[Rfam]
RNA: BsrC
RNA sequence: UAAUCUCAAAACAACGAAAGCCCUAACCUCUCAAUCGUCCAUGCGGCUCCUUGGACCGCGCCUGUGUGAAUUGUUUCAAACAAAAAGUGA
Numbered sequence: 001u002a003a004u005c006u007c008a009a010a011a012c013a014a015c016g017a018a019a020g021c022c023c024u025a026a027c028c029u030c031u032c033a034a035u036c037g038u039c040c041a042u043g044c045g046g047c048u049c050c051u052u053g054g055a056c057c058g059c060g061c062c063u064g065u066g067u068g069a070a071u072u073g074u075u076u077c078a079a080a081c082a083a084a085a086a087g088u089g090a
Stems, first nucleotide, its partner, number of pairs: 035069003040064002042060005047054002